[Rfam]
RNA sequence: AAUGGCACCCUUUUCCCUACAUAGUGCACUACUUUUGUCUGUCAAAAGUAGUGCACUAUGUAGGGAAUAGGGUGCCAUUU
Numbered sequence: 001a002a003u004g005g006c007a008c009c010c011u012u013u014u015c016c017c018u019a020c021a022u023a024g025u026g027c028a029c030u031a032c033u034u035u036u037g038u039c040u041g042u043c044a045a046a047a048g049u050a051g052u053g054c055a056c057u058a059u060g061u062a063g064g065g066a067a068u069a070g071g072g073u074g075c076c077a078u079u080u
Stems, first nucleotide, its partner, number of pairs: 001080002005075006013067007022058009
Rfam assigns this 80-nucleotide RNA from Coregonus sp. 'balchen' to the family "mir-130 microRNA precursor family". Rfam links the family to the GO terms miRNA-mediated post-transcriptional gene silencing and RISC complex. The family has 9 seed sequences and 2,580 matches in Rfam 15.1. The base pairs follow the family's consensus structure, which was predicted with PFOLD. For this family Rfam cites "Identification of tissue-specific microRNAs from mouse" (Lagos-Quintana et al., Curr Biol, 2002). It scores 42 bits against the family's covariance model.